RNA: TPP riboswitch aptamer (THI element)
Organism: Paenacidovorax caeni
RNA sequence: CGGACGAAACAGGGGUGUCCCGGCUGCACAGGCUGGCGACUGAGAAAGACCCUCGGCACCCGAUCCAGGUCAUGCUGGCGUGGGGAGUUUUCACCAGUACAGC
Numbered sequence: 001c002g003g004a005c006g007a008a009a010c011a012g013g014g015g016u017g018u019c020c021c022g023g024c025u026g027c028a029c030a031g032g033c034u035g036g037c038g039a040c041u042g043a044g045a046a047a048g049a050c051c052c053u054c055g056g057c058a059c060c061c062g063a064u065c066c067a068g069g070u071c072a073u074g075c076u077g078g079c080g081u082g083g084g085g086a087g088u089u090u091u092c093a094c095c096a097g098u099a100c101a102g103c
Base pairs, nucleotide, nucleotide: 006091007090008089009088010087011053012052013051014050016047017040018039019038021036059084060083061082062081065078066077067076068075